Shown here is a 102-nucleotide RNA from Proteiniclasticum aestuarii, a member of the family "Purine riboswitch aptamer". The source organism's lineage runs through Bacteria, Bacillati, Bacillota, Clostridia and Proteiniclasticum. The family's consensus secondary structure is taken from published work. Riboswitches are metabolite binding domains within certain messenger RNAs that serve as precision sensors for their corresponding targets. Allosteric rearrangement of mRNA structure is mediated by ligand binding, and this results in modulation of gene expression.

RNA sequence: UAAUUCAAAAAAUCAAUAACUCGUAUAAUCUUGGAGAUAUGGUCCAUAAGUUUCUACCAGACCACCGUAAACGGUCUGACUACGGGAGUGCGUUCCUUAUGU
Number, nucleotide and partner (000 for none) at each position: 001u000002a000003a000004u000005u000006c000007a000008a000009a000010a000011a000012a000013u000014c000015a000016a000017u000018a000019a000020c086021u085022c084023g083024u082025a081026u000027a000028a000029u049030c000031u000032u046033g045034g044035a043036g000037a000038u000039a000040u000041g000042g000043u035044c034045c033046a032047u000048a000049a029050g000051u000052u000053u000054c000055u000056a000057c000058c078059a077060g076061a075062c074063c073064a000065c000066c000067g000068u000069a000070a000071a000072c000073g063074g062075u061076c060077u059078g058079a000080c000081u025082a024083c023084g022085g021086g020087a000088g000089u000090g000091c000092g000093u000094u000095c000096c000097u000098u000099a000100u000101g000102u000